[Rfam]
RNA: M-box riboswitch aptamer (ykoK leader)
Organism: Clostridium tarantellae
RNA sequence: UAAUAUAGUUGUUAGGUGAGGCUCCUAUAAAGAAAUAUGCUGCUACCCAGAAAAAUCGAGAGAUUCCAAUGGGUUAACAGAAAUUAUCGUGAAGGUAAUUUUUAAUGUAGCUGACUAUUUUAUUAGUCUAAGCUCUAUAGUGCUAAAGCUCUACAAAUGAACAUUUAU
Numbered sequence: 001u002a003a004u005a006u007a008g009u010u011g012u013u014a015g016g017u018g019a020g021g022c023u024c025c026u027a028u029a030a031a032g033a034a035a036u037a038u039g040c041u042g043c044u045a046c047c048c049a050g051a052a053a054a055a056u057c058g059a060g061a062g063a064u065u066c067c068a069a070u071g072g073g074u075u076a077a078c079a080g081a082a083a084u085u086a087u088c089g090u091g092a093a094g095g096u097a098a099u100u101u102u103u104a105a106u107g108u109a110g111c112u113g114a115c116u117a118u119u120u121u122a123u124u125a126g127u128c129u130a131a132g133c134u135c136u137a138u139a140g141u142g143c144u145a146a147a148g149c150u151c152u153a154c155a156a157a158u159g160a161a162c163a164u165u166u167a168u
Stems, first nucleotide, its partner, number of pairs: 005164002009160002011154002013093001015150003020144003025140005031134002039111005045074005054065004080102004086096003113128003